[Rfam]
This 181-nucleotide RNA from Colletotrichum trifolii belongs to the Rfam family "Small nucleolar RNA snR32". Its family is annotated with RNA processing and nucleolus in the Gene Ontology. The match comes from Rfam's covariance-model search (46 bits).

RNA sequence: AACGUGAAUAUGCGUUGCCAGCACUACGCUCUGUGUAGAUCGGCAUCAACUGUCGUCUCUCCAUCGACGUUGGUGUUUUCGCUCCUGGCAUAGAACAAAUAUCAACCCGUUGCUGGGCACCUGGCUCUGAGCAGUCGUCUUGACUGUCAUGAGAAGCUGGGAAUCAGCUGAGGUUACAUAG
Numbered sequence: 001a002a003c004g005u006g007a008a009u010a011u012g013c014g015u016u017g018c019c020a021g022c023a024c025u026a027c028g029c030u031c032u033g034u035g036u037a038g039a040u041c042g043g044c045a046u047c048a049a050c051u052g053u054c055g056u057c058u059c060u061c062c063a064u065c066g067a068c069g070u071u072g073g074u075g076u077u078u079u080c081g082c083u084c085c086u087g088g089c090a091u092a093g094a095a096c097a098a099a100u101a102u103c104a105a106c107c108c109g110u111u112g113c114u115g116g117g118c119a120c121c122u123g124g125c126u127c128u129g130a131g132c133a134g135u136c137g138u139c140u141u142g143a144c145u146g147u148c149a150u151g152a153g154a155a156g157c158u159g160g161g162a163a164u165c166a167g168c169u170g171a172g173g174u175u176a177c178a179u180a181g
Stems, first nucleotide, its partner, number of pairs: 004082003017044003024038006045074005052068003105174002108170002120161002124157003128153001131147005

NCBI's taxonomy places the organism under Eukaryota, Opisthokonta, Dikarya, leotiomyceta, Colletotrichum orbiculare species complex.